[Rfam]
RNA: Nitrogen regulated small RNA
Organism: Pseudomonas fluorescens
RNA sequence: UACCCAGUUUCGGGGACCUUGGUACAGGCAGGCCGAGAAUCCCCUCUUUAACACCGAAGCCUUCAAGGCUUCACCCCGUUUUGGGAGCCCUGGUACAGGCAGGCCGGGAACUCCCUUCUUUACACCCGGGGCUUAUGUGGCGCAGCGCCCAUAGCCCCAGCCCGUUUUGGGGACCUUGGUACAGGCAGGCCGGGGAUUCCCUCUUUUAUUGCUCUUGG
Number, nucleotide and partner (000 for none) at each position: 001u000002a000003c000004c000005c000006a000007g000008u000009u000010u000011c000012g044013g043014g042015g041016a040017c000018c037019u036020u035021g034022g033023u032024a000025c000026a000027g000028g000029c000030a000031g000032g023033c022034c021035g020036a019037g018038a000039a000040u016041c015042c014043c013044c012045u000046c000047u000048u000049u000050a000051a000052c000053a000054c000055c000056g000057a071058a070059g069060c068061c067062u000063u000064c000065a000066a000067g061068g060069c059070u058071u057072c000073a000074c000075c000076c000077c000078g000079u000080u000081u000082u000083g115084g114085g113086a112087g111088c000089c108090c107091u106092g105093g104094u103095a000096c000097a000098g000099g000100c000101a000102g000103g094104c093105c092106g091107g090108g089109a000110a000111c087112u086113c085114c084115c083116u000117u000118c000119u000120u000121u000122a000123c000124a000125c000126c000127c000128g158129g157130g156131g155132c154133u000134u000135a000136u000137g000138u151139g150140g149141c000142g000143c000144a000145g000146c000147g000148c000149c140150c139151a138152u000153a000154g132155c131156c130157c129158c128159a000160g000161c000162c000163c000164g000165u000166u000167u000168u000169g202170g201171g200172g199173a198174c000175c194176u193177u192178g191179g190180u189181a000182c000183a000184g000185g000186c000187a000188g000189g180190c179191c178192g177193g176194g175195g000196a000197u000198u173199c172200c171201c170202u169203c000204u000205u000206u000207u000208a000209u000210u000211g000212c000213u000214c000215u000216u000217g000218g000